The record is a 175-nucleotide sequence from Oribacterium sp. C9, which matches "Clostridiales-1 RNA" in Rfam. The family's RNA type in Rfam is small RNA. Taxonomically the source falls in Oribacterium (Bacteria, Clostridia, Lachnospirales, Lachnospiraceae). Rfam 15.1 lists 1,172 matches to the family in 137 species. A search with the family's covariance model found it, with a score of 122 bits.
RNA sequence: UAAAGCCCAGUCGCAAAGAAUAUGUAAGCUGAAUGCUUGCAUUCAAGAUUACAUAUUCUUUAGCGACGCUAACAAGUAUGAGCAAAAAAGCUGCUCGAGCGAAGUGAGAGAAGCGAUUUGCGAAUGCUUGUAGGAUUGCGAGAGUGUGCAACACGAAGCAAUCCGUAGGGCUUUA
Numbered sequence: 001u002a003a004a005g006c007c008c009a010g011u012c013g014c015a016a017a018g019a020a021u022a023u024g025u026a027a028g029c030u031g032a033a034u035g036c037u038u039g040c041a042u043u044c045a046a047g048a049u050u051a052c053a054u055a056u057u058c059u060u061u062a063g064c065g066a067c068g069c070u071a072a073c074a075a076g077u078a079u080g081a082g083c084a085a086a087a088a089a090g091c092u093g094c095u096c097g098a099g100c101g102a103a104g105u106g107a108g109a110g111a112a113g114c115g116a117u118u119u120g121c122g123a124a125u126g127c128u129u130g131u132a133g134g135a136u137u138g139c140g141a142g143a144g145u146g147u148g149c150a151a152c153a154c155g156a157a158g159c160a161a162u163c164c165g166u167a168g169g170g171c172u173u174u175a
Stems, first nucleotide, its partner, number of pairs: 001175007011066004015061013029047002031044005072131008082121004090114003094110003133164007144154004